[Rfam]
This 78-nucleotide RNA from Zizania palustris belongs to the Rfam family "Small nucleolar RNA R160". Rfam's curators write: snoR160 is a C/D box small nucleolar RNA, which acts as a methylation guide for 25S ribosomal RNA in plants. snoR160 has been alternatively named snoZ270 in rice. Rfam links the family to the GO terms nucleolus and RNA processing. It is annotated as a C/D-box small nucleolar RNA. Lineage of the source: Eukaryota > Streptophyta > Spermatophyta > Zizaniinae > Zizania.
RNA sequence: ACAGAAAUGAGGAGGCAAAAUCAUCCAAAUUAAUUUUGGGGAAAACACAUCCAUGGUCUUCAAAGUUCUCUAAUCCGU
Dot-bracket structure: ((.((....................................................................)).))
A reference for the family is Chen et al. (2003), "The high diversity of snoRNAs in plants: identification and comparative study of 120 snoRNA genes from Oryza sativa", Nucleic Acids Res.